Group II catalytic intron D1-D4-3: a 179-nucleotide RNA sequence from Saccharopolyspora phatthalungensis.
A search with the family's covariance model found it, with a score of 38 bits.
Group II introns are found in rRNA, tRNA and mRNA of organelles in fungi, plants and protists, and also in mRNA in bacteria.
The organism belongs to Saccharopolyspora, within Bacteria.
Pairs were carried over by alignment from the consensus structure.

[Rfam]
RNA sequence: CUCACCGUGAGGUGGGGUCUGAAGGGUUUGAGGCGAAACACCGAGCCGUAGCCGAAUAUGGCGAACCGGUCGGCCCGAUCCAGGUGAUGCCGAGCCUGCACUAUGGGGGCGAAGGAAAUACUUGGGGCAUCUGGACACAACAAGGUGUGUGCGGGCGGCGCGGUGGGAAAGUUCUCUGC
Numbered sequence: 001c002u003c004a005c006c007g008u009g010a011g012g013u014g015g016g017g018u019c020u021g022a023a024g025g026g027u028u029u030g031a032g033g034c035g036a037a038a039c040a041c042c043g044a045g046c047c048g049u050a051g052c053c054g055a056a057u058a059u060g061g062c063g064a065a066c067c068g069g070u071c072g073g074c075c076c077g078a079u080c081c082a083g084g085u086g087a088u089g090c091c092g093a094g095c096c097u098g099c100a101c102u103a104u105g106g107g108g109g110c111g112a113a114g115g116a117a118a119u120a121c122u123u124g125g126g127g128c129a130u131c132u133g134g135a136c137a138c139a140a141c142a143a144g145g146u147g148u149g150u151g152c153g154g155g156c157g158g159c160g161c162g163g164u165g166g167g168a169a170a171g172u173u174c175u176c177u178g179c
Stems, first nucleotide, its partner, number of pairs: 001016006026179002030175001033172002039165005045159005066154003073146003077136001079135006088117001090115002094110004